[Rfam]
RNA sequence: AAUUAAUUAUUAUUUAUCUUUAGUUUAUAUGCACAGUAAAUUAUUGAUAUCUAAUAGUUAAAUAAUCCACGUGGUAGAGGCAUAGUUAGGUUCGCUAUGUGUGCAACUCUUAAAGUAACCAAUCCUAAGCAAGUAAUGGAGAAAUAGGUAUUAACAUUAAUACACAGAGAUAACUCUAUAAUGUGCUUGACAGUCUGAUACUAACUGAACAAUAAGUAUCA
Number, nucleotide and partner (000 for none) at each position: 001a063002a000003u061004u060005a059006a058007u057008u056009a055010u054011u053012a052013u000014u000015u049016a048017u000018c000019u000020u000021u000022a000023g041024u040025u039026u038027a037028u000029a000030u000031g000032c000033a000034c000035a000036g000037u027038a026039a025040a024041u023042u000043a000044u000045u000046g000047a000048u016049a015050u000051c000052u012053a011054a010055u009056a008057g007058u006059u005060a004061a003062a000063u001064a000065a000066u000067c000068c000069a000070c000071g000072u000073g000074g000075u000076a110077g109078a108079g107080g000081c099082a098083u097084a096085g095086u094087u000088a000089g000090g000091u000092u000093c000094g086095c085096u084097a083098u082099g081100u000101g000102u000103g000104c000105a000106a000107c079108u078109c077110u076111u000112a000113a000114a000115g000116u000117a000118a000119c000120c000121a000122a000123u140124c139125c138126u000127a000128a000129g000130c189131a188132a187133g186134u185135a000136a000137u000138g125139g124140a123141g000142a000143a000144a000145u000146a000147g000148g000149u000150a000151u000152u000153a000154a184155c183156a182157u181158u180159a000160a000161u000162a000163c000164a000165c000166a000167g000168a000169g000170a000171u000172a000173a000174c000175u000176c000177u000178a000179u000180a158181a157182u156183g155184u154185g134186c133187u132188u131189g130190a000191c000192a000193g000194u000195c000196u221197g220198a219199u218200a217201c216202u215203a000204a000205c000206u000207g000208a000209a000210c000211a000212a000213u000214a000215a202216g201217u200218a199219u198220c197221a196
This 221-nucleotide RNA belongs to the Rfam family "RAGATH-7 RNA". The family's consensus secondary structure is taken from published work. A reference for the family is Weinberg et al. (2015), "New classes of self-cleaving ribozymes revealed by comparative genomics analysis", Nat Chem Biol. Rfam's curators put it in the seed alignment.